Shown here is a 368-nucleotide sequence from Spiroplasma citri, a member of the family "Bacterial RNase P class B".
Ribonuclease P (RNase P) is a ubiquitous endoribonuclease, found in archaea, bacteria and eukarya as well as chloroplasts and mitochondria.
It is one of the family's seed sequences.

RNA sequence: UAACAGAACUAGUUGCUAUUAACUUCUUGUUAAUAGAGGAAACUCCACGCUCGCACAAUCUGUGAUGAUUGUAGUGUUUGUGCUAAUUUAAUUCAUAAAAUUAGGCAUAAGGUUACUUAUGACGGCUGAAAAAAAUCCUACGUUAUUAUUAAAUAAUAUGGAGUUUUUUCUAUAAAAGUGCCACAGAAACGAGUUUUUAAAGAAAUUUAAAAAAUGGAACGGGUAAACCCCACAAGCGAGAAACCUAAAUUUUGGUAAGGGAACUUCUUGUUUUGAAGCAGAAAAAACAAGGGGAUCAAUUUAAUAAUUGAUAGAUAAAUAACUAGUAUUUUAUUUUAAGAAAUAAAAACAGAACGUGGGUUAUGAUG
Numbered sequence: 001u002a003a004c005a006g007a008a009c010u011a012g013u014u015g016c017u018a019u020u021a022a023c024u025u026c027u028u029g030u031u032a033a034u035a036g037a038g039g040a041a042a043c044u045c046c047a048c049g050c051u052c053g054c055a056c057a058a059u060c061u062g063u064g065a066u067g068a069u070u071g072u073a074g075u076g077u078u079u080g081u082g083c084u085a086a087u088u089u090a091a092u093u094c095a096u097a098a099a100a101u102u103a104g105g106c107a108u109a110a111g112g113u114u115a116c117u118u119a120u121g122a123c124g125g126c127u128g129a130a131a132a133a134a135a136u137c138c139u140a141c142g143u144u145a146u147u148a149u150u151a152a153a154u155a156a157u158a159u160g161g162a163g164u165u166u167u168u169u170c171u172a173u174a175a176a177a178g179u180g181c182c183a184c185a186g187a188a189a190c191g192a193g194u195u196u197u198u199a200a201a202g203a204a205a206u207u208u209a210a211a212a213a214a215u216g217g218a219a220c221g222g223g224u225a226a227a228c229c230c231c232a233c234a235a236g237c238g239a240g241a242a243a244c245c246u247a248a249a250u251u252u253u254g255g256u257a258a259g260g261g262a263a264c265u266u267c268u269u270g271u272u273u274u275g276a277a278g279c280a281g282a283a284a285a286a287a288c289a290a291g292g293g294g295a296u297c298a299a300u301u302u303a304a305u306a307a308u309u310g311a312u313a314g315a316u317a318a319a320u321a322a323c324u325a326g327u328a329u330u331u332u333a334u335u336u337u338a339a340g341a342a343a344u345a346a347a348a349a350c351a352g353a354a355c356g357u358g359g360g361u362u363a364u365g366a367u368g
Stems, first nucleotide, its partner, number of pairs: 004368002007364001008327007016036006041362003045359005050240005055072006078235005083104006105123001106121006124230002127172002130169001136162003142157006178228002180224003194213008244260003264294007295312006329348008

Lineage of the source: Bacteria > Mycoplasmatota > Mollicutes > Entomoplasmatales > Spiroplasma.